Selenocysteine insertion sequence 1: a 67-nucleotide sequence from Cavia porcellus.

[Rfam]
RNA sequence: GACGCUUCAUGAAGGGAAGGACUGAAAUGUCUCCGGACGCCUGGUUUUUCCCCGAUGCCCUUGCGAC
Numbered sequence: 001g002a003c004g005c006u007u008c009a010u011g012a013a014g015g016g017a018a019g020g021a022c023u024g025a026a027a028u029g030u031c032u033c034c035g036g037a038c039g040c041c042u043g044g045u046u047u048u049u050c051c052c053c054g055a056u057g058c059c060c061u062u063g064c065g066a067c
Stems, first nucleotide, its partner, number of pairs: 001067001003065003014052010029038003
It is annotated as a cis-regulatory element. NCBI's taxonomy places the organism under Eukaryota, Eumetazoa, Teleostomi, Sarcopterygii, Cavia. The family's consensus secondary structure is taken from published work.